SAM riboswitch aptamer (S box leader): a 124-nucleotide sequence from Pseudozobellia thermophila. The match comes from Rfam's covariance-model search (70 bits).

RNA sequence: UAGUUAUCAAGAAAGGUGGAGGGAAUAGACCCUUUGAAGCCUUAGCAACCCUUUGUCCGAUCAAAUUGUCCGGGCGGAGAAGGUGCUACGUUCUAUCCCAAUGGCAUAUUGGGGCAGAUAACGC
Numbered sequence: 001u002a003g004u005u006a007u008c009a010a011g012a013a014a015g016g017u018g019g020a021g022g023g024a025a026u027a028g029a030c031c032c033u034u035u036g037a038a039g040c041c042u043u044a045g046c047a048a049c050c051c052u053u054u055g056u057c058c059g060a061u062c063a064a065a066u067u068g069u070c071c072g073g074g075c076g077g078a079g080a081a082g083g084u085g086c087u088a089c090g091u092u093c094u095a096u097c098c099c100a101a102u103g104g105c106a107u108a109u110u111g112g113g114g115c116a117g118a119u120a121a122c123g124c
Stems, first nucleotide, its partner, number of pairs: 003122006013043005021032003028094001044087004049083002051079009092116001097113006
Dot-bracket structure: ..((((((....(((((...(((....[.)))......)))))((((.(((((((((((...........)))))))))..))))))....(.]..((((((.....))))))..)))))))..